[Rfam]
RNA sequence: AGAUACCAGGGUCAAAAGGUCAGAAGUUCGACGCAAGCUUGCCUGCAGGAGAAUUUUUGACCUUGGGACCCGCCAAAAACAUGAGUAAGUAGCCAUUUUUCAAAGAAAAAUGAGCGAAUUACGAAUGUUUUCGAAGAUUGCGGGAGCAUAUAGUGCGGAGCAAUCUGGUAUCA
Numbered sequence: 001a002g003a004u005a006c007c008a009g010g011g012u013c014a015a016a017a018g019g020u021c022a023g024a025a026g027u028u029c030g031a032c033g034c035a036a037g038c039u040u041g042c043c044u045g046c047a048g049g050a051g052a053a054u055u056u057u058u059g060a061c062c063u064u065g066g067g068a069c070c071c072g073c074c075a076a077a078a079a080c081a082u083g084a085g086u087a088a089g090u091a092g093c094c095a096u097u098u099u100u101c102a103a104a105g106a107a108a109a110a111u112g113a114g115c116g117a118a119u120u121a122c123g124a125a126u127g128u129u130u131u132c133g134a135a136g137a138u139u140g141c142g143g144g145a146g147c148a149u150a151u152a153g154u155g156c157g158g159a160g161c162a163a164u165c166u167g168g169u170a171u172c173a
Base pairs, nucleotide, nucleotide: 002172003171004170005169006168007167010070011069012068017063018062019061020060021059022058023057024056025055026054027053028052029051032048033046034045035044037042076131077130078129079128080127081126082125085122086121087120088119092115093114094112095111096110097109098108099107100106101105135166136165137164138163139162140161141160146156147155148154149153
The record is a 173-nucleotide sequence, which matches "Clostridiales-1 RNA" in Rfam. It is one of the family's seed sequences. Rfam classes the family as a small RNA.